The family of this 440-nucleotide part of an RNA from an uncultured Verrucomicrobiota bacterium is "Bacterial large subunit ribosomal RNA". The family's consensus secondary structure is taken from published work.
RNA sequence: CUCCUCGAAAUGCAUUUAGGUGCAGCGUUGCAUUAGUACCGGGGGGGUAGAGCACUGAAUAAGUAAGGGGCCAAUUGCGGCUACCAAGCCUAAUCAAACUCCGAAUACCCUGGAUCGAUGUGCAGCAGUGAGACUAUGUGGGAUAAGCUGUGUGGUCGAAAGGGCAACAGCCCAGCCCAACAGCUAAGGUGCCAAAACCCGUUUAAGUGGAAAGGAAGUAAGGCGUCACUGACAGUGAGGAUGUUGGCUUAGAAGCAGCCACCAUUUAAAUAGUGCGUAAUAGCUGGCUCAUCGAGACGCCUUGCGCCGAAAAUGAUUGGCGAUUAAAACGGGUACCGAAGCUUUGGAUGCGCAUGCGGAAGCAUGUGCGUAGUAGAGGAGCAUUCUUCUGGCAAUGAAGCACGCGAUUAAUCAAGUGUGGAGCCGGUUGAAGAGAGGAU
Numbered sequence: 001c002u003c004c005u006c007g008a009a010a011u012g013c014a015u016u017u018a019g020g021u022g023c024a025g026c027g028u029u030g031c032a033u034u035a036g037u038a039c040c041g042g043g044g045g046g047g048u049a050g051a052g053c054a055c056u057g058a059a060u061a062a063g064u065a066a067g068g069g070g071c072c073a074a075u076u077g078c079g080g081c082u083a084c085c086a087a088g089c090c091u092a093a094u095c096a097a098a099c100u101c102c103g104a105a106u107a108c109c110c111u112g113g114a115u116c117g118a119u120g121u122g123c124a125g126c127a128g129u130g131a132g133a134c135u136a137u138g139u140g141g142g143a144u145a146a147g148c149u150g151u152g153u154g155g156u157c158g159a160a161a162g163g164g165c166a167a168c169a170g171c172c173c174a175g176c177c178c179a180a181c182a183g184c185u186a187a188g189g190u191g192c193c194a195a196a197a198c199c200c201g202u203u204u205a206a207g208u209g210g211a212a213a214g215g216a217a218g219u220a221a222g223g224c225g226u227c228a229c230u231g232a233c234a235g236u237g238a239g240g241a242u243g244u245u246g247g248c249u250u251a252g253a254a255g256c257a258g259c260c261a262c263c264a265u266u267u268a269a270a271u272a273g274u275g276c277g278u279a280a281u282a283g284c285u286g287g288c289u290c291a292u293c294g295a296g297a298c299g300c301c302u303u304g305c306g307c308c309g310a311a312a313a314u315g316a317u318u319g320g321c322g323a324u325u326a327a328a329a330c331g332g333g334u335a336c337c338g339a340a341g342c343u344u345u346g347g348a349u350g351c352g353c354a355u356g357c358g359g360a361a362g363c364a365u366g367u368g369c370g371u372a373g374u375a376g377a378g379g380a381g382c383a384u385u386c387u388u389c390u391g392g393c394a395a396u397g398a399a400g401c402a403c404g405c406g407a408u409u410a411a412u413c414a415a416g417u418g419u420g421g422a423g424c425c426g427g428u429u430g431a432a433g434a435g436a437g438g439a440u
Base pairs, nucleotide, nucleotide: 001381002380003379004378005377006376011024012023013022014021015020026128027126028125029124030123031122032121033120035119036116039113040112041111042110043109044108050102051100052099056096057095058094060092061091063089067085068084069082070081071080072079132157133156134155135154136153137152138151139150140149141148162173163172164171177347178346179345180344182343183342184341188337189336190335197334198333199332200331201330202329203328214308215307218305219304220303221302222301223300224299225298226297227296235292236291237290238289239288241265242264243263246260247259248258266270271286275284276283348371349370350369351368352367353366354365355364382435384432385431386430389427390426391425392424393423400419401418402417403416406413407412
The literature on the family includes a 2002 paper in BMC Bioinformatics by Cannone et al., "The comparative RNA web (CRW) site: an online database of comparative sequence and structure information for ribosomal, intron, and other RNAs".